[Rfam]
RNA sequence: ACUAAAAAAAGGCAAACUUACCGAAAGAUAAGGACGCAAAAUCAUAGGCCUUCAGCAUAACAUUUGCUAUGGUUGCCAGAUCACCAGU
Numbered sequence: 001a002c003u004a005a006a007a008a009a010a011g012g013c014a015a016a017c018u019u020a021c022c023g024a025a026a027g028a029u030a031a032g033g034a035c036g037c038a039a040a041a042u043c044a045u046a047g048g049c050c051u052u053c054a055g056c057a058u059a060a061c062a063u064u065u066g067c068u069a070u071g072g073u074u075g076c077c078a079g080a081u082c083a084c085c086a087g088u
Stems, first nucleotide, its partner, number of pairs: 012037002017032004022027001041081003045078001047076001048073003055067003
Shown here is an 88-nucleotide sequence from Halalkalibacter nanhaiisediminis, a member of the family "c-di-GMP-I riboswitch aptamer". About the family: GEMM was predicted in a large-scale screen for bacterial structured RNA regulatory elements. Genes associated with GEMM are involved in a diverse array of functions, including chemotaxis regulation, signal transduction, secretion and chitin. A search with the family's covariance model found it, with a score of 65 bits. The family's consensus secondary structure is taken from published work.